[Rfam]
RNA sequence: ACCUGGCUGGCUCAGUCAGUAGAGCAUGUGACUCUCAAUUUCAGGGUCAUGAGUUCAAGUCCCAUGUUGGGUG
Numbered sequence: 001a002c003c004u005g006g007c008u009g010g011c012u013c014a015g016u017c018a019g020u021a022g023a024g025c026a027u028g029u030g031a032c033u034c035u036c037a038a039u040u041u042c043a044g045g046g047u048c049a050u051g052a053g054u055u056c057a058a059g060u061c062c063c064a065u066g067u068u069g070g071g072u073g
Stems, first nucleotide, its partner, number of pairs: 001072007010025004027043002030040002049065003053061001

Description
This 73-nucleotide RNA sequence from Suricata suricatta belongs to the Rfam family "tRNA". Lineage of the source: Eukaryota > Bilateria > Theria > Eutheria > Suricata.